Source information:
Shown here is a 74-nucleotide sequence from Gossypium aridum, a member of the family "tRNA". Rfam classes the family as a transfer RNA. The match comes from Rfam's covariance-model search (48 bits). Pairs were carried over by alignment from the consensus structure, which is taken from published work. Its family is annotated with triplet codon-amino acid adaptor activity in the Gene Ontology.

RNA sequence: GGGAUUGUAGUUCAAUUGGUCAAAGCACUACCCUGUCAAGGCGGAAGUUGCGGGUUCGAGCCCCGUUAGUCCUG
Numbered sequence: 001g002g003g004a005u006u007g008u009a010g011u012u013c014a015a016u017u018g019g020u021c022a023a024a025g026c027a028c029u030a031c032c033c034u035g036u037c038a039a040g041g042c043g044g045a046a047g048u049u050g051c052g053g054g055u056u057c058g059a060g061c062c063c064c065g066u067u068a069g070u071c072c073u074g
Stems, first nucleotide, its partner, number of pairs: 001073007010026003028044002031041002050066005